Nucleotides: 127
Stems, first nucleotide, its partner, number of pairs: 008080005014028004029051008052075007098125001101122001103121005109116002
Number, partner (000 for none) and nucleotide at each position: 001000u002000a003000a004000a005000a006000g007000g008080g009079u010078c011077g012076g013000u014028u015027g016026g017025c018000u019000a020000u021000g022000u023000a024000u025017g026016c027015c028014a029051c030050g031049c032048c033047c034046a035045u036044c037000c038000u039000u040000c041000g042000u043000u044036g045035g046034u047033g048032g049031g050030u051029g052075c053074u054073g055072u056071a057070u058069g059000g060000a061000u062000a063000u064000c065000a066000a067000g068000a069058c070057a071056u072055a073054u074053g075052g076012c077011c078010g079009a080008c081000a082000u083000a084000a085000u086000u087000u088000g089000u090000g091000g092000a093000a094000a095000c096000u097000a098125g099000u100000a101122g102000g103121g104120u105119u106118g107117g108000c109116u110115c111000g112000c113000u114000c115110g116109g117107c118106c119105g120104a121103c122101c123000c124000u125098c126000u127000u
The family of this 127-nucleotide sequence from Phoenix dactylifera is "U11 spliceosomal RNA". The family is grouped with related families in Rfam's "U1 clan". It scores 79 bits against the family's covariance model. The base pairs follow the family's consensus structure, which is taken from published work. It is annotated as a spliceosomal small nuclear RNA.